[Rfam]
RNA sequence: AUCGCUCGCCUUUGGCUAAGAUCAAGUGUAGUAUCUGUUCUUAUCAGUUUAAUACCUGAUACGCCCUCCAUUCGAGGACUUCAUAUUAAACGGAUUUUUCGACCGAGGAGCUGGAAGAGGGGCUUGUUCGGCUCCACGCACGACCUGGUAUUGCAGUACCUCCAGGAACGGUGCACUGUUU
Numbered sequence: 001a002u003c004g005c006u007c008g009c010c011u012u013u014g015g016c017u018a019a020g021a022u023c024a025a026g027u028g029u030a031g032u033a034u035c036u037g038u039u040c041u042u043a044u045c046a047g048u049u050u051a052a053u054a055c056c057u058g059a060u061a062c063g064c065c066c067u068c069c070a071u072u073c074g075a076g077g078a079c080u081u082c083a084u085a086u087u088a089a090a091c092g093g094a095u096u097u098u099u100c101g102a103c104c105g106a107g108g109a110g111c112u113g114g115a116a117g118a119g120g121g122g123c124u125u126g127u128u129c130g131g132c133u134c135c136a137c138g139c140a141c142g143a144c145c146u147g148g149u150a151u152u153g154c155a156g157u158a159c160c161u162c163c164a165g166g167a168a169c170g171g172u173g174c175a176c177u178g179u180u181u
Base pairs, nucleotide, nucleotide: 002021003020008016009015010014042061043060044059045058046057047056063079065077066076067075068074107135108134109133110132111131112130113129114128138174139173140172141171142169144166145165146164147163148162
RNA: U2 spliceosomal RNA